Shown here is a 147-nucleotide RNA sequence from Bacillus mesophilum, a member of the family "FMN riboswitch aptamer (RFN element)". It scores 101 bits against the family's covariance model. Pairs were carried over by alignment from the consensus structure, which is taken from published work. The organism belongs to Bacillus, within Bacteria.
[Rfam]
RNA sequence: AAAACACUUCGGGGCAAGGUGGAAAUCCUUACCGGCGGUGAUCGAGCGUGCAUGCCUCGUUAGUCCGUGACCCGGAUUCCUUUGGAUUCGGUGGAGCUGGUGUAAAUCCGGCACCGACAGUGAAAGUCUGGAUGGGAGAAGUUGUCU
Numbered sequence: 001a002a003a004a005c006a007c008u009u010c011g012g013g014g015c016a017a018g019g020u021g022g023a024a025a026u027c028c029u030u031a032c033c034g035g036c037g038g039u040g041a042u043c044g045a046g047c048g049u050g051c052a053u054g055c056c057u058c059g060u061u062a063g064u065c066c067g068u069g070a071c072c073c074g075g076a077u078u079c080c081u082u083u084g085g086a087u088u089c090g091g092u093g094g095a096g097c098u099g100g101u102g103u104a105a106a107u108c109c110g111g112c113a114c115c116g117a118c119a120g121u122g123a124a125a126g127u128c129u130g131g132a133u134g135g136g137a138g139a140a141g142u143u144g145u146c147u
Base pairs, nucleotide, nucleotide: 003145006142007141008140009139010138017029018028019027031127032126033116034115035068036067037066038065063114064113072091073090096112097111098110099109100108118130119129120128
Dot-bracket structure: ..(..(((((......(((.......))).[[((((((........................[[))))...((................))....(((((.......)))))]])).(((.....]]))).......)))))..)..